[Rfam]
RNA sequence: CCGACGGGCGGACGUGCGGCGCGCGCCUCUUCUAACCCUAAAAACUGGAGCUGUAGGUGUUGCUCUUUCAGCGUCGCCCGCUGUUUUUCUCGCUGGCUUUCAGCGGGCCAGAAAGUUCAGACCUCUCAGCAGAUCGUCGCGUCGUUCUCAACCACAAAAAAUGCCAGCGCAAAGCGCGUCAGCCUAGAACCUUGCGGCCCCGGGCCGCCCAGCCCCGCACCCGCCUGAGGCCGCGGUUGGCCUGGAGUUCUCCGGACUCCGCUGCCGCCGCGAAGAGUUCGUCUCUGUCAGCCGCGGAGUAUCAGGGGCUGGGGCCAGGCCCGGACAGCGUCGCAAGUACAGUAACGGAGCUGGUCCUUGUUCGGUGGCUUCCCUGAGCUGUAGGAAGUACACCCAGAGCUCGGCUCCUACAACC
Numbered sequence: 001c002c003g004a005c006g007g008g009c010g011g012a013c014g015u016g017c018g019g020c021g022c023g024c025g026c027c028u029c030u031u032c033u034a035a036c037c038c039u040a041a042a043a044a045c046u047g048g049a050g051c052u053g054u055a056g057g058u059g060u061u062g063c064u065c066u067u068u069c070a071g072c073g074u075c076g077c078c079c080g081c082u083g084u085u086u087u088u089c090u091c092g093c094u095g096g097c098u099u100u101c102a103g104c105g106g107g108c109c110a111g112a113a114a115g116u117u118c119a120g121a122c123c124u125c126u127c128a129g130c131a132g133a134u135c136g137u138c139g140c141g142u143c144g145u146u147c148u149c150a151a152c153c154a155c156a157a158a159a160a161a162u163g164c165c166a167g168c169g170c171a172a173a174g175c176g177c178g179u180c181a182g183c184c185u186a187g188a189a190c191c192u193u194g195c196g197g198c199c200c201c202g203g204g205c206c207g208c209c210c211a212g213c214c215c216c217g218c219a220c221c222c223g224c225c226u227g228a229g230g231c232c233g234c235g236g237u238u239g240g241c242c243u244g245g246a247g248u249u250c251u252c253c254g255g256a257c258u259c260c261g262c263u264g265c266c267g268c269c270g271c272g273a274a275g276a277g278u279u280c281g282u283c284u285c286u287g288u289c290a291g292c293c294g295c296g297g298a299g300u301a302u303c304a305g306g307g308g309c310u311g312g313g314g315c316c317a318g319g320c321c322c323g324g325a326c327a328g329c330g331u332c333g334c335a336a337g338u339a340c341a342g343u344a345a346c347g348g349a350g351c352u353g354g355u356c357c358u359u360g361u362u363c364g365g366u367g368g369c370u371u372c373c374c375u376g377a378g379c380u381g382u383a384g385g386a387a388g389u390a391c392a393c394c395c396a397g398a399g400c401u402c403g404g405c406u407c408c409u410a411c412a413a414c415c
Stems, first nucleotide, its partner, number of pairs: 006185004011180007019170002065115004076108008092168006098161003191337007202322005207315004211310006221297004232272005238267004244260003274286004348407004353401003357397002365393003368389001371386003
RNA: Vertebrate telomerase RNA
Organism: Microtus ochrogaster